The family of this 99-nucleotide RNA from Escherichia coli is "traJ-II RNA".

RNA sequence: GGGCAGGACAUGUAAAGUGGGCCCACCGCUACGGUGUUCCAACUUUACCACUCCCUAUUCGCCGCAUCGCGGCUCAAGGGCGUCCUGCUCUGCGAGGCU
Numbered sequence: 001g002g003g004c005a006g007g008a009c010a011u012g013u014a015a016a017g018u019g020g021g022c023c024c025a026c027c028g029c030u031a032c033g034g035u036g037u038u039c040c041a042a043c044u045u046u047a048c049c050a051c052u053c054c055c056u057a058u059u060c061g062c063c064g065c066a067u068c069g070c071g072g073c074u075c076a077a078g079g080g081c082g083u084c085c086u087g088c089u090c091u092g093c094g095a096g097g098c099u
Base pairs, nucleotide, nucleotide: 001090002089003088004087005086006085007084008083009082012048013047014046015045016044017043020040021039024036025035026034027033028032053080054079061073062072063071064070065069
Dot-bracket structure: (((((((((..((((((..((..(((((...)))))..))..))))))....((......(((((...))))).....)).))))))))).........
The source organism's lineage runs through Bacteria, Pseudomonadota, Enterobacteriaceae, Escherichia and Escherichia coli. The sequence is in the family's curated seed alignment.